[Rfam]
RNA sequence: GGGCAUUCAGAAGACUUGCUCUCUGGGCUACAUGCGGAGGACGCAGUUUCUCAGUCUCCGCCCAGGGGAAAGUCCCCGGACUCGUGGCAGAAAGUGCUCUGGAUAGUUCCAGUGUUGGUCGGUGCUCGUACCGUCAUUCAGCGGAGAUGUUCAUUGAGUUGAACUGAGCUGGGUAAUCACCGACCAACUUUGUCAGCUGAUCGUAGUCAUGCAAGUAAGCGGCACUGACGCUUAACAGAACGGGGCUCAUUCUCCGAAUGCA
Numbered sequence: 001g002g003g004c005a006u007u008c009a010g011a012a013g014a015c016u017u018g019c020u021c022u023c024u025g026g027g028c029u030a031c032a033u034g035c036g037g038a039g040g041a042c043g044c045a046g047u048u049u050c051u052c053a054g055u056c057u058c059c060g061c062c063c064a065g066g067g068g069a070a071a072g073u074c075c076c077c078g079g080a081c082u083c084g085u086g087g088c089a090g091a092a093a094g095u096g097c098u099c100u101g102g103a104u105a106g107u108u109c110c111a112g113u114g115u116u117g118g119u120c121g122g123u124g125c126u127c128g129u130a131c132c133g134u135c136a137u138u139c140a141g142c143g144g145a146g147a148u149g150u151u152c153a154u155u156g157a158g159u160u161g162a163a164c165u166g167a168g169c170u171g172g173g174u175a176a177u178c179a180c181c182g183a184c185c186a187a188c189u190u191u192g193u194c195a196g197c198u199g200a201u202c203g204u205a206g207u208c209a210u211g212c213a214a215g216u217a218a219g220c221g222g223c224a225c226u227g228a229c230g231c232u233u234a235a236c237a238g239a240a241c242g243g244g245g246c247u248c249a250u251u252c253u254c255c256g257a258a259u260g261c262a
Stems, first nucleotide, its partner, number of pairs: 003261006010254002014216006022066007037052005071247002074245004086098004099112005115187003119183006129175003139171004149164004218232004223227001
RNA: RNase MRP
Organism: Sphaeramia orbicularis